[Rfam]
Rfam assigns this 273-nucleotide RNA sequence from Rattus norvegicus to the family "Mason-Pfizer monkey virus packaging signal". The family's consensus secondary structure was predicted with PFOLD. This family represents a group of sequences that are related to the Mason-Pfizer monkey virus (MPMV) packaging signal. The packaging signal is located in the 5' UTR and is required for specific RNA encapsidation. A search with the family's covariance model found it, with a score of 140 bits. It is annotated as a cis-regulatory element.

RNA sequence: UGGCGCCCAACAUCUGGUGCCUGGAUAGUAGAGGGGGCUCCAUGAGGAAGAAGACUCAGGUAGCCAGUGUUGUAUGUAGAAAUACCAUCGAAUGCCAUGGGCGCCUGCUGCAGCCGAAAUGAAGGUGAGUGAUAGAGUCUGAUUAUGGGACAAGCAUUAAGCCAACAUGAGGUCUAUGGAGACAGUUAAAAGGGGCAUUAAACCUGUGAAGAGUAAAGGUAAAGACCAACGAUUUAUUUAAAUAUUUUGAUUUUGUUAAGGAUCUUUGCUUAU
Number, nucleotide and partner (000 for none) at each position: 001u000002g000003g000004c000005g000006c035007c034008c033009a000010a000011c000012a000013u000014c028015u027016g026017g000018u000019g000020c000021c000022u000023g000024g000025a000026u016027a015028g014029u000030a000031g000032a000033g008034g007035g006036g000037g000038c000039u000040c000041c053042a000043u051044g000045a000046g000047g000048a000049a000050g000051a043052a000053g041054a000055c000056u000057c000058a000059g000060g000061u000062a000063g000064c000065c000066a000067g000068u000069g000070u000071u000072g000073u000074a000075u000076g000077u000078a000079g000080a000081a000082a000083u000084a126085c125086c124087a000088u000089c000090g000091a000092a000093u118094g000095c000096c000097a000098u110099g109100g108101g000102c000103g000104c000105c000106u000107g000108c100109u099110g098111c000112a000113g000114c000115c000116g000117a000118a093119a000120u000121g000122a000123a000124g086125g085126u084127g000128a000129g000130u000131g000132a000133u153134a000135g151136a000137g000138u149139c148140u147141g146142a000143u000144u000145a000146u141147g140148g139149g138150a000151c135152a000153a133154g000155c000156a000157u000158u200159a199160a198161g196162c195163c194164a000165a000166c000167a000168u000169g000170a000171g000172g000173u000174c000175u000176a000177u000178g000179g000180a000181g000182a000183c000184a000185g000186u000187u000188a000189a000190a000191a000192g000193g000194g163195g162196c161197a000198u160199u159200a158201a000202a000203c000204c000205u000206g000207u249208g248209a247210a246211g245212a000213g243214u242215a000216a000217a235218g234219g233220u232221a000222a000223a000224g000225a000226c000227c000228a000229a000230c000231g000232a220233u219234u218235u217236a000237u000238u000239u000240a000241a000242a214243u213244a000245u211246u210247u209248u208249g207250a000251u000252u000253u000254u000255g000256u000257u000258a273259a000260g271261g270262a000263u268264c000265u000266u000267u000268g263269c000270u261271u260272a000273u258